[Rfam]
Nucleotides: 114
Base pairs, nucleotide, nucleotide: 002113004111005110007108008107009106010105011104014101015100016099018097021095022094037077038076039075040074050062051061
Number, partner (000 for none) and nucleotide at each position: 001000c002113u003000g004111g005110g006000g007108u008107a009106u010105g011104g012000c013000g014101a015100c016099a017000u018097g019000g020000u021095a022094c023000c024000a025000a026000a027000a028000a029000c030000c031000a032000u033000a034000g035000c036000a037077g038076g039075g040074a041000a042000g043000a044000u045000u046000u047000u048000c049000g050062g051061g052000u053000c054000u055000a056000u057000c058000u059000g060000c061051u062050c063000a064000c065000u066000g067000a068000g069000c070000g071000g072000a073000g074040u075039c076038u077037u078000g079000g080000u081000c082000a083000u084000c085000g086000c087000g088000c089000u090000a091000c092000c093000c094022g095021u096000g097018c098000c099016u100015g101014u102000g103000a104011u105010c106009g107008u108007g109000u110005c111004u112000a113002a114000c